[Rfam]
RNA: Bacterial RNase P class A
Organism: Polaribacter irgensii
RNA sequence: UAAGCAGGCUUAUCUUAUCGUCAUGCUUUUUAGCAUGUAGGAAAGUCCGGACACCAUAGAGUAUCAUAGCGGAUAACAUCCGUCCAGCGUAAGUUGAGGACCAGUGCAACAGAAAGCAAGUACAGUUCGGCUGUAGUGAAACCAGGUAAACUCUAUGAGGUGCAAUGCCAUGUAAAUUAGAGCUUGAGAGCUACUCGCUCGAUUCUAAAGGGUAGGCAGAUUGAUUCUAAAAGUAAUUUUAGAACGAGAUAAAUGAUAAGAACUUUUUAUAAAGGGACAGGAUUCGGCUUAUUAGCCUGCUUUUUUA
Numbered sequence: 001u002a003a004g005c006a007g008g009c010u011u012a013u014c015u016u017a018u019c020g021u022c023a024u025g026c027u028u029u030u031u032a033g034c035a036u037g038u039a040g041g042a043a044a045g046u047c048c049g050g051a052c053a054c055c056a057u058a059g060a061g062u063a064u065c066a067u068a069g070c071g072g073a074u075a076a077c078a079u080c081c082g083u084c085c086a087g088c089g090u091a092a093g094u095u096g097a098g099g100a101c102c103a104g105u106g107c108a109a110c111a112g113a114a115a116g117c118a119a120g121u122a123c124a125g126u127u128c129g130g131c132u133g134u135a136g137u138g139a140a141a142c143c144a145g146g147u148a149a150a151c152u153c154u155a156u157g158a159g160g161u162g163c164a165a166u167g168c169c170a171u172g173u174a175a176a177u178u179a180g181a182g183c184u185u186g187a188g189a190g191c192u193a194c195u196c197g198c199u200c201g202a203u204u205c206u207a208a209a210g211g212g213u214a215g216g217c218a219g220a221u222u223g224a225u226u227c228u229a230a231a232a233g234u235a236a237u238u239u240u241a242g243a244a245c246g247a248g249a250u251a252a253a254u255g256a257u258a259a260g261a262a263c264u265u266u267u268u269a270u271a272a273a274g275g276g277a278c279a280g281g282a283u284u285c286g287g288c289u290u291a292u293u294a295g296c297c298u299g300c301u302u303u304u305u306u307a
Stems, first nucleotide, its partner, number of pairs: 002302009012292001013261007022037006043290003047287005052162004059196004064158005069083005084098001085096004099153002104151002106147002121135006166218004177208005188200004225244008